[Rfam]
RNA sequence: AGGUGAGGUAGAGGCGCGAUGUCUAAUAGUACCUAUAUGGAGGUCGGAAACCUAAGAAGUAUAGGGAAAGGAGCCAUCGCCGAAGUCUUAGGCACCCAAAGUCUAAGGCUGGGCCUGCAUCGAAUAGGUGUAGGACUGUCAUCAGGAUAAAAAAAGCCCAUUAUCCUGAUGGAGAGCUAUCUCACGC
Numbered sequence: 001a002g003g004u005g006a007g008g009u010a011g012a013g014g015c016g017c018g019a020u021g022u023c024u025a026a027u028a029g030u031a032c033c034u035a036u037a038u039g040g041a042g043g044u045c046g047g048a049a050a051c052c053u054a055a056g057a058a059g060u061a062u063a064g065g066g067a068a069a070g071g072a073g074c075c076a077u078c079g080c081c082g083a084a085g086u087c088u089u090a091g092g093c094a095c096c097c098a099a100a101g102u103c104u105a106a107g108g109c110u111g112g113g114c115c116u117g118c119a120u121c122g123a124a125u126a127g128g129u130g131u132a133g134g135a136c137u138g139u140c141a142u143c144a145g146g147a148u149a150a151a152a153a154a155a156g157c158c159c160a161u162u163a164u165c166c167u168g169a170u171g172g173a174g175a176g177c178u179a180u181c182u183c184a185c186g187c
Base pairs, nucleotide, nucleotide: 006182007181008180009179010178011177016080017079018078019077020076021075023073024072032065033064034063035062036061037060038059084110085109086108087107088106089105090104091103092102093101111137112136114134115133116132117131118130119129120128121127139172140171141170142169143168144167145166146165147164148163149162150161
Rfam assigns this 187-nucleotide sequence from Caminicella sporogenes to the family "Lysine riboswitch aptamer". Rfam describes the family as follows. Riboswitches are metabolite binding domains within certain messenger RNAs that serve as precision sensors for their corresponding targets. Allosteric rearrangement of mRNA structure is mediated by ligand binding, and this results in modulation of gene expression. This family includes riboswitches that sense lysine in a number of genes involved in lysine metabolism, including lysC. NCBI's taxonomy places the organism under Bacteria, Bacillati, Peptostreptococcales, Caminicellaceae, Caminicella sporogenes. Its family is annotated with lysine biosynthetic process in the Gene Ontology. The match comes from Rfam's covariance-model search (125 bits).